[Rfam]
Description
A member of the RNA family "BsrC" from Paenibacillus cremeus, 89 nucleotides long. Rfam 15.1 lists 572 matches to the family in 553 species. By type it is a small RNA. On this family, see Saito et al., Gene 2008: "Novel small RNA-encoding genes in the intergenic regions of Bacillus subtilis". The source organism's lineage runs through Bacteria, Bacillati, Bacillota, Paenibacillaceae and Paenibacillus. The 301 nucleotide sequence from Kouji Nakamura has been trimmed to a highly conserved ~85 nucleotide long core to form this family. The match comes from Rfam's covariance-model search (76 bits).
RNA sequence: CAAUACUAAAACAAUGGAAGCCCUACCUCUCUUCCAUCCUUGCGGCUCCGAAGACCGCGCCAGUGUGAAUCAGUUGUUACUUACAGUCU
Numbered sequence: 001c002a003a004u005a006c007u008a009a010a011a012c013a014a015u016g017g018a019a020g021c022c023c024u025a026c027c028u029c030u031c032u033u034c035c036a037u038c039c040u041u042g043c044g045g046c047u048c049c050g051a052a053g054a055c056c057g058c059g060c061c062a063g064u065g066u067g068a069a070u071c072a073g074u075u076g077u078u079a080c081u082u083a084c085a086g087u088c089u
Base pairs, nucleotide, nucleotide: 035067036066039063040062041059042058043057044056045055047053